A member of the RNA family "Protozoan signal recognition particle RNA" from Raphidocelis subcapitata, 233 nucleotides long. A search with the family's covariance model found it, with a score of 82 bits. By type it is a non-coding RNA gene. The base pairs follow the family's consensus structure, which is taken from published work. The source organism's lineage runs through Eukaryota, Chlorophyta, Chlorophyceae, Sphaeropleales and Raphidocelis. Its family is annotated with signal recognition particle, endoplasmic reticulum targeting and SRP-dependent cotranslational protein targeting to membrane, signal sequence recognition in the Gene Ontology.

RNA sequence: CCAGCUAUCACCCGAGUGGGGGCAAAACUGCCGGAGGGGCUGCAUAGUAGUGCUGUGCCCAUGUGGCGUGCCUAAGUAGCUGUCCCCAAGAGAGCUGGGCUGGCCGCCCCGCCUGCCUGAGGGUAAGCGGGGCGGCUAAUGAUGUGGUGAUCAAAAGUGGAGGCUGGAAACAGAACACACAAGUCACCCGCCCGUGCUCGGCUUGGGGAUCACAGCCGCGAGCGUCAUGUGGG
Numbered sequence: 001c002c003a004g005c006u007a008u009c010a011c012c013c014g015a016g017u018g019g020g021g022g023c024a025a026a027a028c029u030g031c032c033g034g035a036g037g038g039g040c041u042g043c044a045u046a047g048u049a050g051u052g053c054u055g056u057g058c059c060c061a062u063g064u065g066g067c068g069u070g071c072c073u074a075a076g077u078a079g080c081u082g083u084c085c086c087c088a089a090g091a092g093a094g095c096u097g098g099g100c101u102g103g104c105c106g107c108c109c110c111g112c113c114u115g116c117c118u119g120a121g122g123g124u125a126a127g128c129g130g131g132g133c134g135g136c137u138a139a140u141g142a143u144g145u146g147g148u149g150a151u152c153a154a155a156a157g158u159g160g161a162g163g164c165u166g167g168a169a170a171c172a173g174a175a176c177a178c179a180c181a182a183g184u185c186a187c188c189c190g191c192c193c194g195u196g197c198u199c200g201g202c203u204u205g206g207g208g209a210u211c212a213c214a215g216c217c218g219c220g221a222g223c224g225u226c227a228u229g230u231g232g233g
Base pairs, nucleotide, nucleotide: 011020012019013018059232060231061230062229063228064227065226076219077218079216080215081214082213083212084208085207086206087205088204089203090202092199093198094197095196096194097193098192099191100190101138102137103136104135105134106133107132108131109130110129111128112127114125115124116123117122140144146188147187148186149185150184151183157180158179159178164173165172166171